Description
Rfam assigns this 74-nucleotide RNA from Gossypium barbadense to the family "Plastid-ycf2 5UTR RNA". The match comes from Rfam's covariance-model search (67 bits).
RNA sequence: GUAGGCCAGUAGGAAUUGAACCUACGAAUUCGUCAAUUAUGAGUUGAGCGUUUUAACCAUUUAGCCAUAGAUGU
Numbered sequence: 001g002u003a004g005g006c007c008a009g010u011a012g013g014a015a016u017u018g019a020a021c022c023u024a025c026g027a028a029u030u031c032g033u034c035a036a037u038u039a040u041g042a043g044u045u046g047a048g049c050g051u052u053u054u055a056a057c058c059a060u061u062u063a064g065c066c067a068u069a070g071a072u073g074u
Stems, first nucleotide, its partner, number of pairs: 003074001006070001009025005039068003043065006050058001

Overview:
It is annotated as a cis-regulatory element. Rfam's curators write: Plastid ycf2 is a non-coding RNA (ncRNA) recognised in plastids. It was found in the prime untranslated region (5UTR) of ycf2 genes, it presents a tRNA-like motif which suggests it can be involved in mRNA maturation, particularly involved in defining the precise 5' end of the transcript. Pairs were carried over by alignment from the consensus structure, which was predicted with LocARNA.